[Rfam]
Rfam assigns this 116-nucleotide sequence from Peptoniphilus indolicus to the family "FMN riboswitch aptamer (RFN element)".
From the family's description: The RFN element is a highly conserved domain that is found frequently in the 5'-untranslated regions of prokaryotic mRNAs that encode for flavin mononucleotide (FMN) biosynthesis and transport proteins.
RNA sequence: AUAUUUCUUCAGGGCGAGGUGUAAUUCCUCACCGGUGGUGAUAGUCCACGAGUCGAAAGAUUGAAUCGGUGAAAUUCCGAUACCGACGGUUAUAGUCCGGAUGGGAGAAGAGUAUU
Numbered sequence: 001a002u003a004u005u006u007c008u009u010c011a012g013g014g015c016g017a018g019g020u021g022u023a024a025u026u027c028c029u030c031a032c033c034g035g036u037g038g039u040g041a042u043a044g045u046c047c048a049c050g051a052g053u054c055g056a057a058a059g060a061u062u063g064a065a066u067c068g069g070u071g072a073a074a075u076u077c078c079g080a081u082a083c084c085g086a087c088g089g090u091u092a093u094a095g096u097c098c099g100g101a102u103g104g105g106a107g108a109a110g111a112g113u114a115u116u
Base pairs, nucleotide, nucleotide: 005112006111007110008109009108010107017029018028019027031096032095033085034084035049036048037047038046044083045082052061053060054059065081066080067079068078069077087099088098089097